The family of this 154-nucleotide RNA from Chania multitudinisentens is "Bacterial antisense RNA HPnc0260".
RNA sequence: UGCCUUUAACACGUUCUUGUGAUGAUGAUACCCGAUGCUGCAAUAUCCUGUCAUUGACCAAGAAAAACGCUAAUUAUUGGGGAUAAGAGAUUGGUAGGUGGUGUUUAAAAAGAAGUGGUGCGUCCGAAUGGACUCGAACCAUCGACCCCCACCA
Numbered sequence: 001u002g003c004c005u006u007u008a009a010c011a012c013g014u015u016c017u018u019g020u021g022a023u024g025a026u027g028a029u030a031c032c033c034g035a036u037g038c039u040g041c042a043a044u045a046u047c048c049u050g051u052c053a054u055u056g057a058c059c060a061a062g063a064a065a066a067a068c069g070c071u072a073a074u075u076a077u078u079g080g081g082g083a084u085a086a087g088a089g090a091u092u093g094g095u096a097g098g099u100g101g102u103g104u105u106u107a108a109a110a111a112g113a114a115g116u117g118g119u120g121c122g123u124c125c126g127a128a129u130g131g132a133c134u135c136g137a138a139c140c141a142u143c144g145a146c147c148c149c150c151a152c153c154a
Stems, first nucleotide, its partner, number of pairs: 018042003024036001026034002060075002116151003120147001125144002128142004
A search with the family's covariance model found it, with a score of 59 bits. The source organism's lineage runs through Bacteria, Pseudomonadati, Yersiniaceae, Chania and Chania multitudinisentens.